RNA: Group II catalytic intron D1-D4-2
RNA sequence: GAGGGUGGGCCUCAUGAACCAGGUAUAAGCUUCAAACAACUUUUGGGUUGCUGUGGCUAAAGUCAUGGUGCUUAGCACAAAGGAAAAGGCUACAUAGAGUAGGCUUGUG
Numbered sequence: 001g002a003g004g005g006u007g008g009g010c011c012u013c014a015u016g017a018a019c020c021a022g023g024u025a026u027a028a029g030c031u032u033c034a035a036a037c038a039a040c041u042u043u044u045g046g047g048u049u050g051c052u053g054u055g056g057c058u059a060a061a062g063u064c065a066u067g068g069u070g071c072u073u074a075g076c077a078c079a080a081a082g083g084a085a086a087a088g089g090c091u092a093c094a095u096a097g098a099g100u101a102g103g104c105u106u107g108u109g
Stems, first nucleotide, its partner, number of pairs: 001015001003013003016033003020029001037109002040083006046072002050069003054065004088105003091101002